[Rfam]
RNA sequence: UGACCCUUCUUAAGCCGAGGGUCACCUAGCCAACUGACGUUGUUAGUGAACCUAUGUUUUGUUCACAAAUAUAUAGAGCCAAUCGCGAUUAUUGCGGUUGGCUAUUUUUUU
Numbered sequence: 001u002g003a004c005c006c007u008u009c010u011u012a013a014g015c016c017g018a019g020g021g022u023c024a025c026c027u028a029g030c031c032a033a034c035u036g037a038c039g040u041u042g043u044u045a046g047u048g049a050a051c052c053u054a055u056g057u058u059u060u061g062u063u064c065a066c067a068a069a070u071a072u073a074u075a076g077a078g079c080c081a082a083u084c085g086c087g088a089u090u091a092u093u094g095c096g097g098u099u100g101g102c103u104a105u106u107u108u109u110u111u
Stems, first nucleotide, its partner, number of pairs: 001024006040076004046066006079101008
RNA: Qrr RNA